The family of this 76-nucleotide sequence from Myotis brandtii is "mir-9223 microRNA precursor family".

[Rfam]
RNA sequence: CGUAGUUCUUGGGUGAUGCACCUCAGAAUCAAGCUCCCUCCUCUCUGGUUCUGGGGUACGUCACCCGAGAACCACC
Numbered sequence: 001c002g003u004a005g006u007u008c009u010u011g012g013g014u015g016a017u018g019c020a021c022c023u024c025a026g027a028a029u030c031a032a033g034c035u036c037c038c039u040c041c042u043c044u045c046u047g048g049u050u051c052u053g054g055g056g057u058a059c060g061u062c063a064c065c066c067g068a069g070a071a072c073c074a075c076c
Base pairs, nucleotide, nucleotide: 002075003074005072006071007070008069009068010067011066012065013064014063015062016061017060020057021056022055023054025052026051027050028049029048030047031046033044

A search with the family's covariance model found it, with a score of 77 bits.
Taxonomically the source falls in Myotis (Eukaryota, Teleostomi, Dipnotetrapodomorpha, Yangochiroptera).
The family's consensus secondary structure was predicted with RNAalifold.
The family has 9 seed sequences and 14,641 matches in Rfam 15.1.